[Rfam]
About this RNA
Small nucleolar RNA SNORA64/SNORA10 family: a 137-nucleotide RNA sequence from Campylorhamphus procurvoides. Clan: SNORA64 clan. It is annotated as an H/ACA-box small nucleolar RNA. Lineage of the source: Eukaryota > Craniata > Theropoda > Dendrocolaptidae > Campylorhamphus.
RNA sequence: AAUCUCCCAAUCUGCGCGAUUGCACUUGUGUGCUGUAGUGUAAUUGUCGUAAAUGGAGAGAGAGAGAAACCCGAGUUUUGUGUGUUCGUCAGAGAGACCUGGCCGUGGUCUCCCUGUCCUUACAAAAUCCUACAGUU
Numbered sequence: 001a002a003u004c005u006c007c008c009a010a011u012c013u014g015c016g017c018g019a020u021u022g023c024a025c026u027u028g029u030g031u032g033c034u035g036u037a038g039u040g041u042a043a044u045u046g047u048c049g050u051a052a053a054u055g056g057a058g059a060g061a062g063a064g065a066g067a068a069a070c071c072c073g074a075g076u077u078u079u080g081u082g083u084g085u086u087c088g089u090c091a092g093a094g095a096g097a098c099c100u101g102g103c104c105g106u107g108g109u110c111u112c113c114c115u116g117u118c119c120u121u122a123c124a125a126a127a128u129c130c131u132a133c134a135g136u137u
Stems, first nucleotide, its partner, number of pairs: 003067004008062001011059003018045008076127005082121001084119001091115002095111005
Gene Ontology terms of the family: RNA processing and nucleolus. This family belongs to the H/ACA class of small nucleolar RNAs (snoRNAs) which act as guides in the the modification of uridines to pseudouridines. This family includes the human snoRNAs U64 and ACA10 and mouse MBI-29.